[Rfam]
RNA sequence: UAGUUAUUAAGAAAGGUGGAGGGAGUAGACCCUAUGAAACCUUAGCAACCCUUUAUAAUUACUGAAAAUUUUUCAGAAUCAUAAAGAAGGUGCUAAAUUCUAUCCUUAUUUUUUAGGAAAAGAUAACUU
Numbered sequence: 001u002a003g004u005u006a007u008u009a010a011g012a013a014a015g016g017u018g019g020a021g022g023g024a025g026u027a028g029a030c031c032c033u034a035u036g037a038a039a040c041c042u043u044a045g046c047a048a049c050c051c052u053u054u055a056u057a058a059u060u061a062c063u064g065a066a067a068a069u070u071u072u073u074c075a076g077a078a079u080c081a082u083a084a085a086g087a088a089g090g091u092g093c094u095a096a097a098u099u100c101u102a103u104c105c106u107u108a109u110u111u112u113u114u115a116g117g118a119a120a121a122g123a124u125a126a127c128u129u
Base pairs, nucleotide, nucleotide: 002128003127004126005125006124007123008122013043014042015041016040017039021032022031023030026102027101028100029099044094045093046092047091049090050089051086052085053084054083055082056081098121103118104117105116106115108113
SAM riboswitch aptamer (S box leader): a 129-nucleotide sequence from Aquimarina algicola. The match comes from Rfam's covariance-model search (81 bits).